[Rfam]
RNA sequence: CUACAAUGAUGGUAAUAUUUUUCGUCAACAGAGUUCACUUAGCAAAUGUUGAUACACUGGGUCUGAGUGA
Dot-bracket structure: .(((...((((...........))))........................................))).
A member of the RNA family "Small nucleolar RNA SNORD56" from Castor canadensis, 70 nucleotides long. It is annotated as a C/D-box small nucleolar RNA. The family's consensus secondary structure was predicted with PFOLD. A search with the family's covariance model found it, with a score of 82 bits. The family has 7 seed sequences and 796 matches in Rfam 15.1. Its family is annotated with nucleolus and RNA processing in the Gene Ontology. Taxonomically the source falls in Castor (Eukaryota, Metazoa, Vertebrata, Mammalia). The literature on the family includes a 2002 paper in Mol Cell Biol by Galardi et al., "Purified box C/D snoRNPs are able to reproduce site-specific 2'-O-methylation of target RNA in vitro".